[Rfam]
RNA: drz-agam-2-2 ribozyme
RNA sequence: AAUGGUGGUAGCUCUGCAAUGGGAUGGGAUCCGAAGCCCUUCGAGGGAUAAUACAGGCACUCCCAUCCAACUCCUAUUCCGACACGUCCUCGUCGUGCAGAGUGGUAACGUGUGCCACCAUAUAUCCAAGCUUGGGUACACGGGCUUGAUCCAACCCCUUGGGCGGAUGGUGGCAUAUGGCAAACCAGGAGGGG
Numbered sequence: 001a002a003u004g005g006u007g008g009u010a011g012c013u014c015u016g017c018a019a020u021g022g023g024a025u026g027g028g029a030u031c032c033g034a035a036g037c038c039c040u041u042c043g044a045g046g047g048a049u050a051a052u053a054c055a056g057g058c059a060c061u062c063c064c065a066u067c068c069a070a071c072u073c074c075u076a077u078u079c080c081g082a083c084a085c086g087u088c089c090u091c092g093u094c095g096u097g098c099a100g101a102g103u104g105g106u107a108a109c110g111u112g113u114g115c116c117a118c119c120a121u122a123u124a125u126c127c128a129a130g131c132u133u134g135g136g137u138a139c140a141c142g143g144g145c146u147u148g149a150u151c152c153a154a155c156c157c158c159u160u161g162g163g164c165g166g167a168u169g170g171u172g173g174c175a176u177a178u179g180g181c182a183a184a185c186c187a188g189g190a191g192g193g194g
Stems, first nucleotide, its partner, number of pairs: 011103007022068008031057002072194004077190002080188001084096003088105002109179008118170002124168004132154006156163002